[Rfam]
RNA: Small nucleolar RNA SNORA77
RNA sequence: GCAGACUCACUCUGUACCGAACUGCAGUCUUCAGUUCAGGUGCUUUUUGGUCUGCAAGAGUAAUCACUCACAGGCGUGAUGAAUGCCUUCUUUCUUGUGGAAGGCUGUUACAGUUGCUACUGGGACAUGGCU
Numbered sequence: 001g002c003a004g005a006c007u008c009a010c011u012c013u014g015u016a017c018c019g020a021a022c023u024g025c026a027g028u029c030u031u032c033a034g035u036u037c038a039g040g041u042g043c044u045u046u047u048u049g050g051u052c053u054g055c056a057a058g059a060g061u062a063a064u065c066a067c068u069c070a071c072a073g074g075c076g077u078g079a080u081g082a083a084u085g086c087c088u089u090c091u092u093u094c095u096u097g098u099g100g101a102a103g104g105c106u107g108u109u110a111c112a113g114u115u116g117c118u119a120c121u122g123g124g125a126c127a128u129g130g131c132u
Stems, first nucleotide, its partner, number of pairs: 001055006014043005019037002022034003068123003073118003076114002080110002085105004